RNA sequence: UUAUAAGAAAAAGUUUGCUUUUUAGGUUCAUAGAAUGUUUGAUGUAUCUAGUCUAUGAUAUGAGUCAGAUACAUCAAACAUUCUAUGAACCUAAAAAGUAAAUUUUUCCUUAUAU
Numbered sequence: 001u002u003a004u005a006a007g008a009a010a011a012a013g014u015u016u017g018c019u020u021u022u023u024a025g026g027u028u029c030a031u032a033g034a035a036u037g038u039u040u041g042a043u044g045u046a047u048c049u050a051g052u053c054u055a056u057g058a059u060a061u062g063a064g065u066c067a068g069a070u071a072c073a074u075c076a077a078a079c080a081u082u083c084u085a086u087g088a089a090c091c092u093a094a095a096a097a098g099u100a101a102a103u104u105u106u107u108c109c110u111u112a113u114a115u
Stems, first nucleotide, its partner, number of pairs: 002114006009107005015101011027089018049067001051065002